[Rfam]
RNA sequence: AAGUCAGUUGAAAAUGUACCGUAGACAGUAGGGGGAGAAAUCCUUAAUUAGCCUACCGAGGACAAAAUUCGAAAAGAAGCUUAUGUGCCUUUUUGUAUGUUCUCGCAUGCAAAAAGGUUUUUUAUUGGUACU
Numbered sequence: 001a002a003g004u005c006a007g008u009u010g011a012a013a014a015u016g017u018a019c020c021g022u023a024g025a026c027a028g029u030a031g032g033g034g035g036a037g038a039a040a041u042c043c044u045u046a047a048u049u050a051g052c053c054u055a056c057c058g059a060g061g062a063c064a065a066a067a068u069u070c071g072a073a074a075a076g077a078a079g080c081u082u083a084u085g086u087g088c089c090u091u092u093u094u095g096u097a098u099g100u101u102c103u104c105g106c107a108u109g110c111a112a113a114a115a116g117g118u119u120u121u122u123u124a125u126u127g128g129u130a131c132u
Stems, first nucleotide, its partner, number of pairs: 028056005034043003088117013
Shown here is a 132-nucleotide sequence from Gemella morbillorum, a member of the family "Ribosomal protein L10 leader". Rfam links the family to the GO term regulation of gene expression.